[Rfam]
RNA sequence: GCGGGCGUGGCGGAAUGGCAGACGCGCUGGACUUAGGAUCCAGUGGGGGCAACCUCGUGCGGGUUCAACUCCCGCCGCCCGCA
Numbered sequence: 001g002c003g004g005g006c007g008u009g010g011c012g013g014a015a016u017g018g019c020a021g022a023c024g025c026g027c028u029g030g031a032c033u034u035a036g037g038a039u040c041c042a043g044u045g046g047g048g049g050c051a052a053c054c055u056c057g058u059g060c061g062g063g064u065u066c067a068a069c070u071c072c073c074g075c076c077g078c079c080c081g082c083a
Base pairs, nucleotide, nucleotide: 001082002081003080004079005078006077007076010025011024012023027043028042029041030040031039059075060074061073062072063071
The family of this 83-nucleotide RNA from Pelotomaculum isophthalicicum is "tRNA". Rfam links the family to the GO term triplet codon-amino acid adaptor activity. A search with the family's covariance model found it, with a score of 61 bits. It is annotated as a transfer RNA. Rfam describes the family as follows. Transfer RNA (tRNA) molecules are approximately 80 nucleotides in length. NCBI's taxonomy places the organism under Bacteria, Bacillota, Eubacteriales, Pelotomaculum, Pelotomaculum isophthalicicum.